[Rfam]
RNA sequence: UAUCGAGGUUUUCCUUGGCAGUUAACUGCAGCUGGUUAUUAUAAUUAUUCGGCAGUUAACUGCCGAGGGGGCA
Numbered sequence: 001u002a003u004c005g006a007g008g009u010u011u012u013c014c015u016u017g018g019c020a021g022u023u024a025a026c027u028g029c030a031g032c033u034g035g036u037u038a039u040u041a042u043a044a045u046u047a048u049u050c051g052g053c054a055g056u057u058a059a060c061u062g063c064c065g066a067g068g069g070g071g072c073a
Stems, first nucleotide, its partner, number of pairs: 012070002015067001016065014
RNA: MIR2629 microRNA precursor family